[Rfam]
RNA sequence: GCCAAUGAUGACCCAACUCUUUUGAGGUGUUGUGGAGCCAAUUCCUUGCCUUGCAAGGAGAACCUAGUUGGUGAAGCUACAUUUGAAAUGAUUAUUCAAUGGAUUUAACUUAGGC
Numbered sequence: 001g002c003c004a005a006u007g008a009u010g011a012c013c014c015a016a017c018u019c020u021u022u023u024g025a026g027g028u029g030u031u032g033u034g035g036a037g038c039c040a041a042u043u044c045c046u047u048g049c050c051u052u053g054c055a056a057g058g059a060g061a062a063c064c065u066a067g068u069u070g071g072u073g074a075a076g077c078u079a080c081a082u083u084u085g086a087a088a089u090g091a092u093u094a095u096u097c098a099a100u101g102g103a104u105u106u107a108a109c110u111u112a113g114g115c
Stems, first nucleotide, its partner, number of pairs: 001115003044058005

The family of this 115-nucleotide sequence from Juglans regia is "Small nucleolar RNA Z278". snoZ278 is a C/D box small nucleolar RNA. Its methylation guide targets have not been reported. The base pairs follow the family's consensus structure, which was predicted with PFOLD. The match comes from Rfam's covariance-model search (42 bits).